[Rfam]
Nucleotides: 118
Base pairs, nucleotide, nucleotide: 034071035070036069037068039066040065042062043061082114083113084112085111086110087109088108089107090106091105092104
Number, partner (000 for none) and nucleotide at each position: 001000u002000u003000g004000u005000a006000a007000g008000a009000u010000a011000a012000g013000a014000u015000a016000c017000u018000u019000a020000u021000g022000a023000c024000u025000u026000u027000u028000u029000a030000c031000u032000u033000a034071a035070a036069a037068u038000c039066a040065g041000u042062c043061g044000u045000a046000a047000a048000c049000c050000g051000a052000u053000u054000a055000u056000a057000g058000c059000a060000u061043c062042g063000u064000g065040u066039u067000u068037a069036u070035u071034u072000a073000a074000g075000c076000g077000c078000a079000a080000u081000a082114a083113a084112a085111a086110g087109a088108a089107c090106c091105u092104g093000a094000g095000c096000c097000a098000u099000u100000u101000g102000c103000c104092c105091a106090g107089g108088u109087u110086c111085u112084u113083u114082u115000u116000u117000g118000u
This 118-nucleotide RNA from Paenibacillus sp. JDR-2 belongs to the Rfam family "Bacillus sRNA ncr1015".
On this family, see Irnov et al., Nucleic Acids Res 2010: "Identification of regulatory RNAs in Bacillus subtilis".
The base pairs follow the family's consensus structure, which is taken from published work.